[Rfam]
RNA: Purine riboswitch aptamer
Organism: Bacillus sp. SJS
RNA sequence: UGAAAAUAACGACGAAGCCUUCAUAUAAAUUUGGGGAUAUGGCCCAAGAGUUUCUACCCGGACACCGUAAAUGACCGGACUAUGAGGGAAAGUGGAUUAACC
Numbered sequence: 001u002g003a004a005a006a007u008a009a010c011g012a013c014g015a016a017g018c019c020u021u022c023a024u025a026u027a028a029a030u031u032u033g034g035g036g037a038u039a040u041g042g043c044c045c046a047a048g049a050g051u052u053u054c055u056a057c058c059c060g061g062a063c064a065c066c067g068u069a070a071a072u073g074a075c076c077g078g079a080c081u082a083u084g085a086g087g088g089a090a091a092g093u094g095g096a097u098u099a100a101c102c
Stems, first nucleotide, its partner, number of pairs: 018088008030048006058078004063073002